[Rfam]
RNA: M-box riboswitch aptamer (ykoK leader)
Organism: Alkalibacterium pelagium
RNA sequence: UCAAAUACUUGUUAGGAGAGGCUCCUAAAUGAACACAGGCUAUUGCCCAAAAACUUCGAGAGAAGCCAAUGGGUAGAACAGGCAUGAUCGGAUUAAGGUCUUGCAUAAGAUAGCUGAUUCUUCACGAAUCUACGUCAUUUAGUGCUAAAACCCAGACGAAGAGUAGAUGU
Numbered sequence: 001u002c003a004a005a006u007a008c009u010u011g012u013u014a015g016g017a018g019a020g021g022c023u024c025c026u027a028a029a030u031g032a033a034c035a036c037a038g039g040c041u042a043u044u045g046c047c048c049a050a051a052a053a054c055u056u057c058g059a060g061a062g063a064a065g066c067c068a069a070u071g072g073g074u075a076g077a078a079c080a081g082g083c084a085u086g087a088u089c090g091g092a093u094u095a096a097g098g099u100c101u102u103g104c105a106u107a108a109g110a111u112a113g114c115u116g117a118u119u120c121u122u123c124a125c126g127a128a129u130c131u132a133c134g135u136c137a138u139u140u141a142g143u144g145c146u147a148a149a150a151c152c153c154a155g156a157c158g159a160a161g162a163g164u165a166g167a168u169g170u
Stems, first nucleotide, its partner, number of pairs: 006165005011157002013096001015152002020146003025142008039114005045074005054065004082104003087099003116130003